[Rfam]
RNA sequence: AUGCCCCCACAACGGCUUCCUGGCGUGGCGGGUUCACCCUAACGGAGCA
Numbered sequence: 001a002u003g004c005c006c007c008c009a010c011a012a013c014g015g016c017u018u019c020c021u022g023g024c025g026u027g028g029c030g031g032g033u034u035c036a037c038c039c040u041a042a043c044g045g046a047g048c049a
Stems, first nucleotide, its partner, number of pairs: 004031002007028004013022002015048003019045002
A member of the RNA family "SAM/SAH riboswitch aptamer" from Marivivens sp. JLT3646, 49 nucleotides long. The source organism's lineage runs through Bacteria, Pseudomonadota, Alphaproteobacteria, Paracoccaceae and Marivivens.